[Rfam]
Nucleotides: 114
Stems, first nucleotide, its partner, number of pairs: 006102001009099002011062004017032005039056005068093003074087004
Number, partner (000 for none) and nucleotide at each position: 001000a002000c003000a004000u005000g006102c007000a008000c009099c010098c011062g012061c013060g014059g015000g016000a017032g018031c019030c020029c021028g022000g023000u024000g025000a026000g027000c028021c029020g030019g031018g032017c033000u034000g035000a036000g037000a038000g039056g040055g041054a042053g043052a044000c045000c046000g047000g048000a049000a050000c051000g052043u053042c054041u055040c056039c057000g058000a059014c060013c061012g062011c063000a064000c065000g066000a067000a068093c069092c070091u071000g072000a073000u074087c075086c076085g077084g078000g079000u080000c081000a082000u083000g084077c085076c086075g087074g088000c089000g090000a091070a092069g093068g094000g095000a096000g097000u098010g099009g100000a101000a102006g103000c104000g105000a106000u107000g108000a109000c110000c111000g112000a113000u114000g
Shown here is a 114-nucleotide sequence from Allonocardiopsis opalescens, a member of the family "TPP riboswitch aptamer (THI element)". It scores 66 bits against the family's covariance model. NCBI's taxonomy places the organism under Bacteria, Bacillati, Actinomycetes, Streptosporangiales, Allonocardiopsis.